[Rfam]
RNA sequence: GAGUGAUAUGAUGGCAUACCAUCUUUCGGGACUGACUCUUGAAAUGGAGAUAUCCUUUUAUUUCACUGAUCACUC
Dot-bracket structure: ((((((...............................................................))))))
This 75-nucleotide RNA from Larimichthys crocea belongs to the Rfam family "Small nucleolar RNA SNORD2". Gene Ontology terms of the family: nucleolus and RNA processing. The source organism's lineage runs through Eukaryota, Vertebrata, Neopterygii, Osteoglossocephalai and Larimichthys. Rfam classes the family as a C/D-box small nucleolar RNA. On this family, see Zhou et al., Gene 2004: "Identification of a novel box C/D snoRNA from mouse nucleolar cDNA library".